[Rfam]
Shown here is a 128-nucleotide RNA from Candidatus Planktophila sulfonica, a member of the family "FMN riboswitch aptamer (RFN element)". A search with the family's covariance model found it, with a score of 102 bits. The RFN element is a highly conserved domain that is found frequently in the 5'-untranslated regions of prokaryotic mRNAs that encode for flavin mononucleotide (FMN) biosynthesis and transport proteins. This element is a metabolite-dependent riboswitch that directly binds FMN in the absence of proteins.
RNA sequence: UGUUGUUAUCGGGGUCGAUGUAAUUUCGAACCGGCGGUUAUAGUCCGCGACCCGCACAUAUCCAAUGGGCGGUUGACUCAGUGAAACUCUGGGACCGACGGUUAAAGUCCGGAUGAGAGAUAACAGCG
Numbered sequence: 001u002g003u004u005g006u007u008a009u010c011g012g013g014g015u016c017g018a019u020g021u022a023a024u025u026u027c028g029a030a031c032c033g034g035c036g037g038u039u040a041u042a043g044u045c046c047g048c049g050a051c052c053c054g055c056a057c058a059u060a061u062c063c064a065a066u067g068g069g070c071g072g073u074u075g076a077c078u079c080a081g082u083g084a085a086a087c088u089c090u091g092g093g094a095c096c097g098a099c100g101g102u103u104a105a106a107g108u109c110c111g112g113a114u115g116a117g118a119g120a121u122a123a124c125a126g127c128g
Stems, first nucleotide, its partner, number of pairs: 003126008016028003030108002032097002034048004043095002052072002077093005099111003
Taxonomically the source falls in Candidatus Planktophila (Bacteria, Bacillati, Actinomycetota, Actinomycetes).